[Rfam]
Rfam assigns this 87-nucleotide sequence from Marinomonas spartinae to the family "sRNA-Xcc1".

RNA sequence: GUCGGGAGGGCGGUAGUGAUAAAAUACCUUCGGGGAAAGCUACCCGCGGUUCCUUUUUGGCCGUUCUGAACCUCCUGACACCCAAUC
Numbered sequence: 001g002u003c004g005g006g007a008g009g010g011c012g013g014u015a016g017u018g019a020u021a022a023a024a025u026a027c028c029u030u031c032g033g034g035g036a037a038a039g040c041u042a043c044c045c046g047c048g049g050u051u052c053c054u055u056u057u058u059g060g061c062c063g064u065u066c067u068g069a070a071c072c073u074c075c076u077g078a079c080a081c082c083c084a085a086u087c
Stems, first nucleotide, its partner, number of pairs: 001079009012044004017039001027034002046064005
Lineage of the source: Bacteria > Pseudomonadati > Pseudomonadota > Oceanospirillaceae > Marinomonas. Rfam 15.1 lists 421 matches to the family in 299 species. It scores 59 bits against the family's covariance model.